[Rfam]
RNA sequence: ACGAGUAUAUAAAUAACAGCUUAUUUAUGCUCGUAAUCGGUCGAGCGUUUCUACUUGGCACCGUAAUGCCAAACAAUAAGCAAGGAGCCUAGGUCU
Numbered sequence: 001a002c003g004a005g006u007a008u009a010u011a012a013a014u015a016a017c018a019g020c021u022u023a024u025u026u027a028u029g030c031u032c033g034u035a036a037u038c039g040g041u042c043g044a045g046c047g048u049u050u051c052u053a054c055u056u057g058g059c060a061c062c063g064u065a066a067u068g069c070c071a072a073a074c075a076a077u078a079a080g081c082a083a084g085g086a087g088c089c090u091a092g093g094u095c096u
Base pairs, nucleotide, nucleotide: 019081020080021079022078023077024076025075029046030045031044032043033042055072056071057070058069059068060067
A member of the RNA family "Purine riboswitch aptamer" from Pseudolactococcus hodotermopsidis, 96 nucleotides long. The source organism's lineage runs through Bacteria, Bacillati, Bacillota, Lactobacillales and Pseudolactococcus. The family's consensus secondary structure is taken from published work.